A member of the RNA family "Rhodo-rpoB RNA" from Albidovulum inexpectatum, 94 nucleotides long.
Taxonomically the source falls in Albidovulum (Bacteria, Pseudomonadati, Pseudomonadota, Alphaproteobacteria).
The match comes from Rfam's covariance-model search (69 bits).
RNA sequence: GGUUCGGGAGUGCCCCGGUGGGACGGGGUGCAUGAAUUGAACCGGCCCCCUUCAUUCGCAAGCGGCGUGGCGCCGUGUCCCCGACGGAGCCACA
Numbered sequence: 001g002g003u004u005c006g007g008g009a010g011u012g013c014c015c016c017g018g019u020g021g022g023a024c025g026g027g028g029u030g031c032a033u034g035a036a037u038u039g040a041a042c043c044g045g046c047c048c049c050c051u052u053c054a055u056u057c058g059c060a061a062g063c064g065g066c067g068u069g070g071c072g073c074c075g076u077g078u079c080c081c082c083g084a085c086g087g088a089g090c091c092a093c094a
Stems, first nucleotide, its partner, number of pairs: 001043005010031008067093005073087003